[Rfam]
RNA: Small nucleolar RNA SNORD34
Organism: Crocodylus porosus
RNA sequence: UGCGUCUGUGAUGCUCUAAUUUACCUACAUUGUUUGAUGGCUUAUGAGAAAAAAAUCCUUCAAACACUGAGACGCCA
Dot-bracket structure: ((((((................................................................)))).))
Numbered sequence: 001u002g003c004g005u006c007u008g009u010g011a012u013g014c015u016c017u018a019a020u021u022u023a024c025c026u027a028c029a030u031u032g033u034u035u036g037a038u039g040g041c042u043u044a045u046g047a048g049a050a051a052a053a054a055a056u057c058c059u060u061c062a063a064a065c066a067c068u069g070a071g072a073c074g075c076c077a
Stems, first nucleotide, its partner, number of pairs: 001077002003074004